The record is a 134-nucleotide RNA from Drosophila kikkawai, which matches "Small nucleolar RNA psi28S-1192" in Rfam. About the family: psi28S-1192 is a member of the H/ACA class of snoRNA. This family is responsible for guiding the modification of uridine 1192 to pseudouridine in Drosophila 28S rRNA.
RNA sequence: AUAGGGUCCAAUCUAAUUCUGCCUGAUGGUUUAUUCAUGUAGUCUCGCUUUUGGACCAGAAUAUAUCUUUUAUUAUCCUUGUGCUUGCGAUAAAUAACCAGUUCAAUGCACACGAGAAACGUAAAAGAACAUGU
Number, nucleotide and partner (000 for none) at each position: 001a000002u000003a000004g000005g057006g056007u055008c054009c053010a052011a000012u000013c000014u000015a000016a000017u000018u000019c042020u041021g040022c039023c000024u037025g036026a035027u033028g032029g000030u000031u000032u028033a027034u000035u026036c025037a024038u000039g022040u021041a020042g019043u000044c000045u000046c000047g000048c000049u000050u000051u000052u010053g009054g008055a007056c006057c005058a000059g000060a000061a000062u000063a000064u000065a000066u128067c127068u126069u125070u124071u123072a122073u121074u000075a000076u000077c000078c116079u115080u114081g113082u112083g111084c000085u000086u000087g000088c000089g000090a000091u000092a000093a000094a000095u000096a000097a000098c000099c000100a000101g000102u000103u000104c000105a000106a000107u000108g000109c000110a000111c083112a082113c081114g080115a079116g078117a000118a000119a000120c000121g073122u072123a071124a070125a069126a068127g067128a066129a000130c000131a000132u000133g000134u000